[Rfam]
Description: The family of this 111-nucleotide RNA from Sorghum bicolor is "MIR5565 microRNA precursor family". The base pairs follow the family's consensus structure, which was predicted with RNAalifold.

RNA sequence: GUAGUUGGACUCACAUCAAUCCACAUGUGUGUUGAGGUGGAUUGGAGUGAAAUUUGAACUAAAUUCUACACCAAUCCACACCAACACAUAUGGAUUGAAGUGAAUCCGAGA
Numbered sequence: 001g002u003a004g005u006u007g008g009a010c011u012c013a014c015a016u017c018a019a020u021c022c023a024c025a026u027g028u029g030u031g032u033u034g035a036g037g038u039g040g041a042u043u044g045g046a047g048u049g050a051a052a053u054u055u056g057a058a059c060u061a062a063a064u065u066c067u068a069c070a071c072c073a074a075u076c077c078a079c080a081c082c083a084a085c086a087c088a089u090a091u092g093g094a095u096u097g098a099a100g101u102g103a104a105u106c107c108g109a110g111a
Base pairs, nucleotide, nucleotide: 005109006108007107008106009105011103012102013101014100016098017097018096019095020094021093022092023091026090027089028088029087030086031085032084033083034082037079038078039077040076041075042074043073044072045071047069048068049067